[Rfam]
RNA sequence: CCUUCGGAGUAUCAUAAAAACCUUAGUAGAGUAUAUAAAAGUAACUAAUUUUAUUAGUGAAAUACUCAAAAAGGGAUACAAUGAACAAGGAA
Dot-bracket structure: ((((....(((((.......(((.....(((..((...........................)))))....)))))))).......))))..

Annotation: The record is a 92-nucleotide RNA from Staphylococcus phage vB_SsapH-Golestan101-M, which matches "RAGATH-18 RNA" in Rfam. Rfam classes the family as a small RNA. Rfam describes the family as follows. Actinobacteria, Firmicutes, Fusobacteria, Thermotogae (1 example). The source organism's lineage runs through Viruses, Duplodnaviria, Heunggongvirae, Uroviricota and Baoshanvirus.